Shown here is a 132-nucleotide RNA sequence from Tripterygium wilfordii, a member of the family "MIR394 microRNA precursor family".
Taxonomically the source falls in Tripterygium (Eukaryota, Streptophytina, Spermatophyta, Celastrales).
RNA sequence: CUUGCAGAGUUUAUUGGCAUUCUGUCCACCUCCCCAUGAUCCAUGCUUGCAAUACUGAAAAAACGAUGUUGUUUUUCAAUAGUAGGGACUAGGGAGGAGGAGGUGGGCAUACUGCCAACUGAGCUCUGCUUG
Dot-bracket structure: ..........(..((((((...(((((((((((.................................................................)))))))))))...))))))...)..........
Numbered sequence: 001c002u003u004g005c006a007g008a009g010u011u012u013a014u015u016g017g018c019a020u021u022c023u024g025u026c027c028a029c030c031u032c033c034c035c036a037u038g039a040u041c042c043a044u045g046c047u048u049g050c051a052a053u054a055c056u057g058a059a060a061a062a063a064c065g066a067u068g069u070u071g072u073u074u075u076u077c078a079a080u081a082g083u084a085g086g087g088a089c090u091a092g093g094g095a096g097g098a099g100g101a102g103g104u105g106g107g108c109a110u111a112c113u114g115c116c117a118a119c120u121g122a123g124c125u126c127u128g129c130u131u132g
Stems, first nucleotide, its partner, number of pairs: 011122001014118006023109011

For this family Rfam cites "Computational identification of plant microRNAs and their targets, including a stress-induced miRNA" (Jones-Rhoades and Bartel, Mol Cell, 2004). The base pairs follow the family's consensus structure, which was predicted with WAR. Rfam 15.1 lists 724 matches to the family in 216 species.